[Rfam]
RNA: chrB-a RNA
Organism: Sphingorhabdus pulchriflava
RNA sequence: GGCAUGGGGACCGCGAUCACCCCAUGAGGCGACAUGCUGAAGUAUCGCGUCCUACUCGAUUCGAGGACGCCGCAUG
Numbered sequence: 001g002g003c004a005u006g007g008g009g010a011c012c013g014c015g016a017u018c019a020c021c022c023c024a025u026g027a028g029g030c031g032a033c034a035u036g037c038u039g040a041a042g043u044a045u046c047g048c049g050u051c052c053u054a055c056u057c058g059a060u061u062c063g064a065g066g067a068c069g070c071c072g073c074a075u076g
Stems, first nucleotide, its partner, number of pairs: 005024005047070006